The record is a 130-nucleotide RNA sequence from Varroa destructor, which matches "mir-71 microRNA precursor family" in Rfam. Rfam 15.1 lists 372 matches to the family in 291 species.
[Rfam]
RNA sequence: CUGACGUGAAAGACAUGGGUAGUGAGAUGUCGUCGUUAAGAUUAGGUUUUGCCCCUUGAACACGGUGGGGCCUACAGCGCACCGCAGGGGACGAACUGAAUCCUCUCACUACCUUGUCUUUGACGAGGGU
Numbered sequence: 001c002u003g004a005c006g007u008g009a010a011a012g013a014c015a016u017g018g019g020u021a022g023u024g025a026g027a028u029g030u031c032g033u034c035g036u037u038a039a040g041a042u043u044a045g046g047u048u049u050u051g052c053c054c055c056u057u058g059a060a061c062a063c064g065g066u067g068g069g070g071c072c073u074a075c076a077g078c079g080c081a082c083c084g085c086a087g088g089g090g091a092c093g094a095a096c097u098g099a100a101u102c103c104u105c106u107c108a109c110u111a112c113c114u115u116g117u118c119u120u121u122g123a124c125g126a127g128g129g130u
Stems, first nucleotide, its partner, number of pairs: 009121007017114003021110007029102001